[Rfam]
RNA sequence: CGCGUCCGUCUCGUGGACGCCGGUGCCCAUCCAAGCCCACCGGCAGUUACGCUGACGCCGUGCCCUGCCCCGGUUACCGCCGGGGAAGGCGCAUAGCCGACAGCCGUCGCACCUCAGGGAGCCCCUUCAUG
Numbered sequence: 001c002g003c004g005u006c007c008g009u010c011u012c013g014u015g016g017a018c019g020c021c022g023g024u025g026c027c028c029a030u031c032c033a034a035g036c037c038c039a040c041c042g043g044c045a046g047u048u049a050c051g052c053u054g055a056c057g058c059c060g061u062g063c064c065c066u067g068c069c070c071c072g073g074u075u076a077c078c079g080c081c082g083g084g085g086a087a088g089g090c091g092c093a094u095a096g097c098c099g100a101c102a103g104c105c106g107u108c109g110c111a112c113c114u115c116a117g118g119g120a121g122c123c124c125c126u127u128c129a130u131g
Stems, first nucleotide, its partner, number of pairs: 061093003066085001068083001096110002099108003
Shown here is a 131-nucleotide RNA sequence from Streptomyces sp. 1-11, a member of the family "Streptomyces-metH RNA". Rfam classes the family as a small RNA. A search with the family's covariance model found it, with a score of 84 bits.